[Rfam]
trpB ncRNA motif: a 104-nucleotide sequence from Streptococcus pyogenes. Rfam links the family to the GO term regulation of gene expression. trpB ncRNA motif was reported as a strong cis regulatory motif candidate, with potential to be a cis regulatory riboswitch type, it have been identified in Firmicutes and Fusobacteria. The motif have been recognised upstream of an uncharacterized ABC transporter with strong homology to amino acid transporters. It is also occasionally located upstream of trpB gene, that codes for a tryptophan synthase. On this family, see Narunsky et al., Nucleic Acids Res 2024: "The discovery of novel noncoding RNAs in 50 bacterial genomes". Pairs were carried over by alignment from the consensus structure, which is taken from published work. NCBI's taxonomy places the organism under Bacteria, Bacillati, Bacilli, Lactobacillales, Streptococcus pyogenes serotype M1.

RNA sequence: GGCAUAGAUACGACUUUUAGAGUACUUCUAAAAAGAUAUCUAUGCGCUGACAUUGGAUUUCACAAGAGCGCCUAGUAAUCAUUACUAAGUGCUUUUUCUUUUGA
Numbered sequence: 001g002g003c004a005u006a007g008a009u010a011c012g013a014c015u016u017u018u019a020g021a022g023u024a025c026u027u028c029u030a031a032a033a034a035g036a037u038a039u040c041u042a043u044g045c046g047c048u049g050a051c052a053u054u055g056g057a058u059u060u061c062a063c064a065a066g067a068g069c070g071c072c073u074a075g076u077a078a079u080c081a082u083u084a085c086u087a088a089g090u091g092c093u094u095u096u097u098c099u100u101u102u103g104a
Stems, first nucleotide, its partner, number of pairs: 002045009011035001015033006067093005073087005